[Rfam]
RNA sequence: AAAGGUUGUGCCUAACAACAUAUAAAUUUUAGGCCCAUCCAGUGCAGUCAGUGCCUGCACACUUAAACAUUAAACUGAUAUAAAAGAUGGAGGUAGC
Numbered sequence: 001a002a003a004g005g006u007u008g009u010g011c012c013u014a015a016c017a018a019c020a021u022a023u024a025a026a027u028u029u030u031a032g033g034c035c036c037a038u039c040c041a042g043u044g045c046a047g048u049c050a051g052u053g054c055c056u057g058c059a060c061a062c063u064u065a066a067a068c069a070u071u072a073a074a075c076u077g078a079u080a081u082a083a084a085a086g087a088u089g090g091a092g093g094u095a096g097c
Base pairs, nucleotide, nucleotide: 005019006018007017008016010034011033012032013031014030035090036089037088038087039086042060043059044058045057046056
Dot-bracket structure: ....[[[[.(((((.]]]]..........)))))(((((..(((((.........))))).........................))))).......
A member of the RNA family "GP20-a RNA", 97 nucleotides long. It is one of the family's seed sequences. The family's consensus secondary structure is taken from published work. By type it is a cis-regulatory element.